[Rfam]
RNA sequence: CUCUUAUCAAGAGCGGCGGAGGGAACGAGCCCGAUGAAGCCCGGCAACCCCGACAGAUGUGUCGGAAGGUGCCAAUUCUCGCAGGUCCGGUUAGGGAUCUGACAGAUAAGGG
Numbered sequence: 001c002u003c004u005u006a007u008c009a010a011g012a013g014c015g016g017c018g019g020a021g022g023g024a025a026c027g028a029g030c031c032c033g034a035u036g037a038a039g040c041c042c043g044g045c046a047a048c049c050c051c052g053a054c055a056g057a058u059g060u061g062u063c064g065g066a067a068g069g070u071g072c073c074a075a076u077u078c079u080c081g082c083a084g085g086u087c088c089g090g091u092u093a094g095g096g097a098u099c100u101g102a103c104a105g106a107u108a109a110g111g112g
Base pairs, nucleotide, nucleotide: 001112002111003110004109005108006107007106008105013042015041016040017039021032022031023030026081027080028079029078043073044072045071046070048069049068050065051064052063053062077104082101083100084099085098086097087096
RNA: SAM riboswitch aptamer (S box leader)
Organism: Desmospora activa